[Rfam]
The record is an 87-nucleotide RNA sequence from Hipposideros armiger, which matches "Small nucleolar RNA SNORD35" in Rfam. By type it is a C/D-box small nucleolar RNA. U35 is a C/D box snoRNA located in intron 6 of ribosomal protein L13A and intron 3 of ribosomal protein S11 in humans and at homologous positions in mouse and chicken ribosomal protein genes. U35 guides the methylation of 2'-O-ribose sites in 28S rRNA. The base pairs follow the family's consensus structure, which was predicted with PFOLD. The match comes from Rfam's covariance-model search (63 bits).
RNA sequence: GGCAGAGAUGUCUGUUUUCACAGUGGUCUUCAGAUAUCUGCUAUAGGCACUGCUGAGCAAGCCACUUGGCACAGCUGGUGCCAGAAG
Numbered sequence: 001g002g003c004a005g006a007g008a009u010g011u012c013u014g015u016u017u018u019c020a021c022a023g024u025g026g027u028c029u030u031c032a033g034a035u036a037u038c039u040g041c042u043a044u045a046g047g048c049a050c051u052g053c054u055g056a057g058c059a060a061g062c063c064a065c066u067u068g069g070c071a072c073a074g075c076u077g078g079u080g081c082c083a084g085a086a087g
Stems, first nucleotide, its partner, number of pairs: 001082004